The record is a 98-nucleotide RNA sequence from Mollisiaceae sp. DMI_Dod_QoI, which matches "Small nucleolar RNA Z13/snr52" in Rfam. The family has 42 seed sequences and 1,203 matches in Rfam 15.1.
RNA sequence: AUCAUUAUAUGAUGAAAUAUUUCGGAUGUUAACUCAUACUGUCUCCGAGAGCGCAAAACCAUGUGGAGAUUUCCGUUGCCUUCCUUCUGAUUACAAGU
Numbered sequence: 001a002u003c004a005u006u007a008u009a010u011g012a013u014g015a016a017a018u019a020u021u022u023c024g025g026a027u028g029u030u031a032a033c034u035c036a037u038a039c040u041g042u043c044u045c046c047g048a049g050a051g052c053g054c055a056a057a058a059c060c061a062u063g064u065g066g067a068g069a070u071u072u073c074c075g076u077u078g079c080c081u082u083c084c085u086u087c088u089g090a091u092u093a094c095a096a097g098u
Stems, first nucleotide, its partner, number of pairs: 003097001005095001023075004
Rfam classes the family as a C/D-box small nucleolar RNA.
The base pairs follow the family's consensus structure, which was predicted with PFOLD.
Taxonomically the source falls in Mollisiaceae (Eukaryota, Fungi, Dikarya, Helotiales).